RNA sequence: UUUUGAGGUAGAGGUGCGGUCUUUAUUAGUACUUUCGCAGAGGUAAGCACAAUGAAGCGAAGGAAAAGGAAAGGUCGUCGGAGCAUGCAGCUAAUGCUUUAUGGCUGUAGGGCUGGUUCUGUAUAGAAUAUGUACAGUAACUGUCACAAAUGCGUAAUUUGUGGAGAGCUAUCUAGAUA
Numbered sequence: 001u002u003u004u005g006a007g008g009u010a011g012a013g014g015u016g017c018g019g020u021c022u023u024u025a026u027u028a029g030u031a032c033u034u035u036c037g038c039a040g041a042g043g044u045a046a047g048c049a050c051a052a053u054g055a056a057g058c059g060a061a062g063g064a065a066a067a068g069g070a071a072a073g074g075u076c077g078u079c080g081g082a083g084c085a086u087g088c089a090g091c092u093a094a095u096g097c098u099u100u101a102u103g104g105c106u107g108u109a110g111g112g113c114u115g116g117u118u119c120u121g122u123a124u125a126g127a128a129u130a131u132g133u134a135c136a137g138u139a140a141c142u143g144u145c146a147c148a149a150a151u152g153c154g155u156a157a158u159u160u161g162u163g164g165a166g167a168g169c170u171a172u173c174u175a176g177a178u179a
Base pairs, nucleotide, nucleotide: 006174007173008172009171010170011169016078017077018076019075020074021073022072023071024070032063033062034061035060036059037058038057082114083113084112086109087108088107089106090105091104092103093102115142116141117140118139119137120136121135122134123133124132125131144164145163146162147161148160149159150158
The record is a 179-nucleotide RNA sequence from Clostridium amylolyticum, which matches "Lysine riboswitch aptamer" in Rfam. The family's consensus secondary structure is taken from published work.